[Rfam]
RNA: U4atac minor spliceosomal RNA
Organism: Heliornis fulica
RNA sequence: ACCGUCCUUAUCUUGGGGUUGCGCGGCUGCCCGAUGAGCGCGUGGCGAGGGCAGCCCUGCUGACACCUGACGCAACACAGCGGCGCCCGCUCUCGCGCGGCGCAAUUUUUGGAACC
Number, nucleotide and partner (000 for none) at each position: 001a000002c000003c000004g000005u000006c018007c017008u016009u015010a000011u000012c000013u000014u000015g009016g008017g007018g006019u000020u000021g060022c059023g058024c000025g000026g055027c054028u053029g052030c051031c050032c049033g000034a000035u000036g000037a000038g046039c045040g000041c000042g000043u000044g000045g039046c038047g000048a000049g032050g031051g030052c029053a028054g027055c026056c000057c000058u023059g022060c021061u000062g000063a000064c000065a000066c000067c000068u000069g000070a000071c000072g000073c000074a000075a000076c000077a000078c000079a000080g000081c000082g000083g103084c102085g101086c100087c099088c000089g096090c095091u000092c000093u000094c000095g090096c089097g000098c000099g087100g086101c085102g084103c083104a000105a000106u000107u000108u000109u000110u000111g000112g000113a000114a000115c000116c000